[Rfam]
RNA sequence: UCACGAUAAAGGCAAAGCUAAUGAAAGUUAGUGACGCAAAGCUAAAGGGGCUAAGGUGGACCUCCACUACGCCAGCCAGUUUCCGAA
Numbered sequence: 001u002c003a004c005g006a007u008a009a010a011g012g013c014a015a016a017g018c019u020a021a022u023g024a025a026a027g028u029u030a031g032u033g034a035c036g037c038a039a040a041g042c043u044a045a046a047g048g049g050g051c052u053a054a055g056g057u058g059g060a061c062c063u064c065c066a067c068u069a070c071g072c073c074a075g076c077c078a079g080u081u082u083c084c085g086a087a
Stems, first nucleotide, its partner, number of pairs: 012037002017032006040081004047077002049073003056067004